Source information:
A member of the RNA family "mir-395 microRNA precursor family" from Hordeum vulgare, 137 nucleotides long. From the family's description: mir-395 was identified in both Arabidopsis thaliana and Oryza sativa computationally and was later experimentally verified. mir-395 is thought to target mRNAs coding for ATP sulphurylases. For this family Rfam cites "Computational Identification of Plant MicroRNAs and Their Targets, Including a Stress-Induced miRNA" (Jones-Rhoades and Bartel, Mol Cell, 2004). The base pairs follow the family's consensus structure, which was predicted with PFOLD.
[Rfam]
RNA sequence: UUGUCAACUGGAGUUCUCCUCAAAUCACUUCAGUAGCUAGCUUAACCAUGUCUCGGUGCAUUGACACUUUUGUAAGUGCGCGCAGUGAGCUCGACAGCUGUGCAUAGUGAAGUGUUUGGGGGAACUCUGGGUGGCGA
Numbered sequence: 001u002u003g004u005c006a007a008c009u010g011g012a013g014u015u016c017u018c019c020u021c022a023a024a025u026c027a028c029u030u031c032a033g034u035a036g037c038u039a040g041c042u043u044a045a046c047c048a049u050g051u052c053u054c055g056g057u058g059c060a061u062u063g064a065c066a067c068u069u070u071u072g073u074a075a076g077u078g079c080g081c082g083c084a085g086u087g088a089g090c091u092c093g094a095c096a097g098c099u100g101u102g103c104a105u106a107g108u109g110a111a112g113u114g115u116u117u118g119g120g121g122g123a124a125c126u127c128u129g130g131g132u133g134g135c136g137a
Stems, first nucleotide, its partner, number of pairs: 005133002008130002011127010022117003026114007034106002